The family of this 74-nucleotide RNA from Cronobacter sakazakii is "PyrD leader". Pairs were carried over by alignment from the consensus structure, which is taken from published work. Taxonomically the source falls in Cronobacter sakazakii (Bacteria, Pseudomonadati, Gammaproteobacteria, Enterobacterales). The family's RNA type in Rfam is cis-regulatory leader. A reference for the family is Sorensen (1994), "Conformational heterogeneity in the Salmonella typhimurium pyrC and pyrD leader mRNAs produced in vivo", Nucleic Acids Res. It is one of the family's seed sequences. Its family is annotated with regulation of gene expression in the Gene Ontology.
RNA sequence: AUUCCCUUUGUGAAGUGGAUCGCAGAUAAUAGCGCCCCGGUUUGCACACCGGGAAUCCAGGAGAGUUCAUGUAC
Numbered sequence: 001a002u003u004c005c006c007u008u009u010g011u012g013a014a015g016u017g018g019a020u021c022g023c024a025g026a027u028a029a030u031a032g033c034g035c036c037c038c039g040g041u042u043u044g045c046a047c048a049c050c051g052g053g054a055a056u057c058c059a060g061g062a063g064a065g066u067u068c069a070u071g072u073a074c
Stems, first nucleotide, its partner, number of pairs: 036053006